[Rfam]
RNA sequence: UUAGAUGUAGAGUGAUUUCCCUUUCGGUCAGAGUCACCAACUCCGCCCCGGAAUAGCAAAAAAACCGACCUCACCAGUCGGUUUUUUUGU
Numbered sequence: 001u002u003a004g005a006u007g008u009a010g011a012g013u014g015a016u017u018u019c020c021c022u023u024u025c026g027g028u029c030a031g032a033g034u035c036a037c038c039a040a041c042u043c044c045g046c047c048c049c050g051g052a053a054u055a056g057c058a059a060a061a062a063a064a065c066c067g068a069c070c071u072c073a074c075c076a077g078u079c080g081g082u083u084u085u086u087u088u089g090u
Base pairs, nucleotide, nucleotide: 022053023052024051025050026049027048031043032042033041058087059086060085061084062083063082065081066080067079068078069077

A member of the RNA family "ArsR-gov region gene B" from Streptomyces sp. DJ, 90 nucleotides long. The literature on the family includes a 2013 paper in PLoS Genet by Weel-Sneve et al., "Single transmembrane peptide DinQ modulates membrane-dependent activities". From the family's description: arsR-gov region gene B is transcribed opposite of dinQ (translates into a toxic single transmembrane peptide) with 30 complimentary nucleotides. AgrB appears to repress accumulation of dinQ by RNA interference and counteracts its toxicity. It scores 50 bits against the family's covariance model. The base pairs follow the family's consensus structure, which was predicted with RNAfold.